[Rfam]
RNA sequence: UUGUUGAGAUGCAGUGAUGCUUCUUGAUAGUUUCUCCUCUAUUUCUCCUUUGUAGACUUGGCGCGGGCUCAAAAAUCCCGCGCAUUUUU
Numbered sequence: 001u002u003g004u005u006g007a008g009a010u011g012c013a014g015u016g017a018u019g020c021u022u023c024u025u026g027a028u029a030g031u032u033u034c035u036c037c038u039c040u041a042u043u044u045c046u047c048c049u050u051u052g053u054a055g056a057c058u059u060g061g062c063g064c065g066g067g068c069u070c071a072a073a074a075a076u077c078c079c080g081c082g083c084a085u086u087u088u089u
Stems, first nucleotide, its partner, number of pairs: 003028007011020001038056005061083007069075001
This 89-nucleotide RNA sequence from Craterilacuibacter sinensis belongs to the Rfam family "Neisseria metabolic switch regulator b (RcoF1/NgncR163)". Its family is annotated with mRNA binding, protein binding and tricarboxylic acid cycle in the Gene Ontology. Pairs were carried over by alignment from the consensus structure, which was predicted with RNAfold. Lineage of the source: Bacteria > Pseudomonadota > Neisseriales > Neisseriaceae > Craterilacuibacter. On this family, see Pannekoek et al., MBio 2017: "Neisseria meningitidis Uses Sibling Small Regulatory RNAs To Switch from Cataplerotic to Anaplerotic Metabolism".